[Rfam]
This 205-nucleotide RNA sequence from Clostridium sp. USBA 49 belongs to the Rfam family "raiA RNA".
The family's consensus secondary structure is taken from published work.
The source organism's lineage runs through Bacteria, Bacillota, Clostridia, Clostridiaceae and Clostridium.
Nucleotides: 205
Base pairs, nucleotide, nucleotide: 001205002204003203004202005201006200007199008198009197012196013195014194015190016189017188018187019186028176029175030174031041033091034090035089036088037087038086039085050084051083058076060074062072063071082183103169104168105167106166107165108119109118110117111116123162124161125160126159132154133153138147139146
Number, partner (000 for none) and nucleotide at each position: 001205a002204u003203a004202a005201g006200u007199u008198a009197g010000g011000u012196u013195u014194g015190u016189g017188g018187u019186u020000g021000a022000a023000a024000g025000u026000c027000g028176a029175u030174g031041c032000c033091a034090g035089u036088c037087g038086c039085a040000g041031g042000c043000a044000a045000a046000a047000c048000g049000a050084c051083c052000c053000a054000c055000g056000u057000a058076a059000g060074u061000u062072a063071a064000a065000c066000a067000a068000a069000u070000g071063u072062u073000u074060a075000a076058u077000g078000a079000g080000c081000a082183u083051g084050g085039u086038g087037c088036g089035g090034c091033u092000u093000a094000g095000a096000a097000g098000u099000a100000a101000g102000u103169c104168c105167u106166g107165c108119c109118g110117u111116a112000a113000a114000u115000u116111u117110a118109c119108g120000a121000g122000a123162g124161a125160g126159u127000g128000a129000g130000u131000a132154g133153u134000g135000a136000g137000a138147g139146g140000a141000u142000a143000a144000u145000g146139c147138c148000g149000a150000g151000u152000a153133g154132c155000a156000a157000a158000a159126a160125c161124u162123c163000c164000a165107g166106c167105a168104g169103g170000c171000g172000a173000g174030u175029g176028u177000g178000g179000g180000g181000g182000c183082a184000a185000a186019g187018a188017c189016c190015a191000g192000g193000u194014c195013a196012a197009c198008u199007a200006a201005c202004u203003u204002a205001u